The record is a 160-nucleotide sequence from Medicago truncatula, which matches "MIR2619 microRNA precursor family" in Rfam.
It scores 150 bits against the family's covariance model.
RNA sequence: CCCCUAUGUUUUGAUUCUUUGGCAGUUUUGGACCCCCAAGGCAAAAAUAUUUUUUUUUGACACGUGGCACCUCACUUAGGGUGCCACGUCAGCAUUGACCGAGUCAACAAUGGACUGGGGGUCCAAAAAUGCCAAAGAAUCAAAACAUAGGGGGCUAUUU
Numbered sequence: 001c002c003c004c005u006a007u008g009u010u011u012u013g014a015u016u017c018u019u020u021g022g023c024a025g026u027u028u029u030g031g032a033c034c035c036c037c038a039a040g041g042c043a044a045a046a047a048u049a050u051u052u053u054u055u056u057u058u059g060a061c062a063c064g065u066g067g068c069a070c071c072u073c074a075c076u077u078a079g080g081g082u083g084c085c086a087c088g089u090c091a092g093c094a095u096u097g098a099c100c101g102a103g104u105c106a107a108c109a110a111u112g113g114a115c116u117g118g119g120g121g122u123c124c125a126a127a128a129a130u131g132c133c134a135a136a137g138a139a140u141c142a143a144a145a146c147a148u149a150g151g152g153g154g155c156u157a158u159u160u
Stems, first nucleotide, its partner, number of pairs: 001153001005149020026128013062089002065086007
NCBI's taxonomy places the organism under Eukaryota, Euphyllophyta, Gunneridae, Papilionoideae, Medicago.